Nucleotides: 106
Base pairs, nucleotide, nucleotide: 001106002105003104004103005102006101007100013041015040016039017038021031022030023029025081026080027079028078042073043072044071045070047069048068049065050064051063052062077098082095083094084093085092086091
Number, partner (000 for none) and nucleotide at each position: 001106c002105u003104c004103u005102u006101a007100u008000a009000a010000a011000g012000a013041g014000u015040g016039g017038u018000g019000g020000a021031g022030g023029g024000a025081c026080a027079g028078g029023c030022c031021c032000u033000g034000u035000g036000a037000a038017a039016c040015c041013c042073a043072g044071c045070a046000a047069c048068c049065u050064g051063c052062a053000a054000g055000u056000u057000g058000a059000u060000c061000u062052u063051g064050c065049a066000u067000u068048g069047g070045u071044g072043c073042u074000a075000c076000a077098u078028c079027c080026u081025g082095c083094a084093a085092a086091c087000g088000a089000c090000a091086g092085u093084u094083u095082g096000a097000u098077a099000g100007a101006u102005a103004a104003g105002a106001g
The record is a 106-nucleotide sequence from Paenisporosarcina antarctica, which matches "SAM riboswitch aptamer (S box leader)" in Rfam.